[Rfam]
RNA sequence: GUCGAAUAUUUACUCCGAGUCUUUUUUCCUGGGAAAUAUAUUUUAUGGAACUAAGACCGAUAGGGUUUAGUUGGAAACGAUUAAGCCUCCCAGUGCGGAAAGGGGUAUGAAUAUAUAGCUC
Numbered sequence: 001g002u003c004g005a006a007u008a009u010u011u012a013c014u015c016c017g018a019g020u021c022u023u024u025u026u027u028c029c030u031g032g033g034a035a036a037u038a039u040a041u042u043u044u045a046u047g048g049a050a051c052u053a054a055g056a057c058c059g060a061u062a063g064g065g066u067u068u069a070g071u072u073g074g075a076a077a078c079g080a081u082u083a084a085g086c087c088u089c090c091c092a093g094u095g096c097g098g099a100a101a102g103g104g105g106u107a108u109g110a111a112u113a114u115a116u117a118g119c120u121c
Stems, first nucleotide, its partner, number of pairs: 004114001006112001011107006019057005026050004033044004063088011089098002
Dot-bracket structure: ...(.(....((((((..(((((..((((...((((....))))..))))..))))).....(((((((((((....)))))))))))((......))...))))))....).).......